Notes:
A member of the RNA family "radC RNA" from Pseudomonas sp. HLS-6, 138 nucleotides long. The family's consensus secondary structure is taken from published work. By type it is a cis-regulatory element. NCBI's taxonomy places the organism under Bacteria, Pseudomonadati, Gammaproteobacteria, Pseudomonadales, Pseudomonas.
[Rfam]
RNA sequence: UGGCCGUGCAAGCGCUGUCGAUGACAGCACCCCAGGUGGCCCGAACCUUUAAGGUCACGCCGCUCCCGCGGUGGUUCUCCCCCCAAAUGGCGAUUCGCGUCCGGCAGUUCGCCCGGUCACCUCCCCGGUGAUGGAUGC
Numbered sequence: 001u002g003g004c005c006g007u008g009c010a011a012g013c014g015c016u017g018u019c020g021a022u023g024a025c026a027g028c029a030c031c032c033c034a035g036g037u038g039g040c041c042c043g044a045a046c047c048u049u050u051a052a053g054g055u056c057a058c059g060c061c062g063c064u065c066c067c068g069c070g071g072u073g074g075u076u077c078u079c080c081c082c083c084c085a086a087a088u089g090g091c092g093a094u095u096c097g098c099g100u101c102c103g104g105c106a107g108u109u110c111g112c113c114c115g116g117u118c119a120c121c122u123c124c125c126c127g128g129u130g131a132u133g134g135a136u137g138c
Stems, first nucleotide, its partner, number of pairs: 014028006036058006044076004059072005110137002116132006